[Rfam]
RNA: TPP riboswitch aptamer (THI element)
Organism: Halobacillus karajensis
RNA sequence: UGAAACUACUAGGGGGGCCUUAAUAGGCUGAGAGGAAAGCGAUUAAGCUUUCCGACUCUUACAAACCUGAUCUGGUUAAUACCAGCGGAGGGAAGUAGUCUGACGAUACA
Numbered sequence: 001u002g003a004a005a006c007u008a009c010u011a012g013g014g015g016g017g018c019c020u021u022a023a024u025a026g027g028c029u030g031a032g033a034g035g036a037a038a039g040c041g042a043u044u045a046a047g048c049u050u051u052c053c054g055a056c057u058c059u060u061a062c063a064a065a066c067c068u069g070a071u072c073u074g075g076u077u078a079a080u081a082c083c084a085g086c087g088g089a090g091g092g093a094a095g096u097a098g099u100c101u102g103a104c105g106a107u108a109c110a
Stems, first nucleotide, its partner, number of pairs: 006098005011059004016053001017028004035052005066091003072085004